[Rfam]
RNA: U2 spliceosomal RNA
Organism: Peltaster fructicola
RNA sequence: AUCACUAAUAACACUUCACAGAGUAUCUGUUCUUCUAAGUAUGACAACUUAGAUCUUGGCGCAAGCCAAACUUUAUGUCAUAACAAUUUUUGAAACCAGGUUAAGGGCCGCUGGGCUAUGCCUAUGUCCUUGACCACUGUGUCGCUUGCUUUGCACUGCCGCUUGCUGACGCGAAUUCAC
Numbered sequence: 001a002u003c004a005c006u007a008a009u010a011a012c013a014c015u016u017c018a019c020a021g022a023g024u025a026u027c028u029g030u031u032c033u034u035c036u037a038a039g040u041a042u043g044a045c046a047a048c049u050u051a052g053a054u055c056u057u058g059g060c061g062c063a064a065g066c067c068a069a070a071c072u073u074u075a076u077g078u079c080a081u082a083a084c085a086a087u088u089u090u091u092g093a094a095a096c097c098a099g100g101u102u103a104a105g106g107g108c109c110g111c112u113g114g115g116c117u118a119u120g121c122c123u124a125u126g127u128c129c130u131u132g133a134c135c136a137c138u139g140u141g142u143c144g145c146u147u148g149c150u151u152u153g154c155a156c157u158g159c160c161g162c163u164u165g166c167u168g169a170c171g172c173g174a175a176u177u178c179a180c
Stems, first nucleotide, its partner, number of pairs: 034053006056069005099135008112124005138173006144166002148162002